[Rfam]
RNA sequence: CUCUAAUACAAUUUUCAGACUAUAUAUUUCAAGGAAUAUAUACAGCAAAAGUAUUAGUAUUAAAGAGAUUUAUUCCUUCCAAGAAAAAAAGGUAAAAAAGAAUCAAUAAAAUAGAUAUUAGUAAAAUAAAAUUGAAUAUAUUUAUUUUAU
Numbered sequence: 001c002u003c004u005a006a007u008a009c010a011a012u013u014u015u016c017a018g019a020c021u022a023u024a025u026a027u028u029u030c031a032a033g034g035a036a037u038a039u040a041u042a043c044a045g046c047a048a049a050a051g052u053a054u055u056a057g058u059a060u061u062a063a064a065g066a067g068a069u070u071u072a073u074u075c076c077u078u079c080c081a082a083g084a085a086a087a088a089a090a091g092g093u094a095a096a097a098a099a100g101a102a103u104c105a106a107u108a109a110a111a112u113a114g115a116u117a118u119u120a121g122u123a124a125a126a127u128a129a130a131a132u133u134g135a136a137u138a139u140a141u142u143u144a145u146u147u148u149a150u
Stems, first nucleotide, its partner, number of pairs: 003057007014048002021042009079092002106150013125133002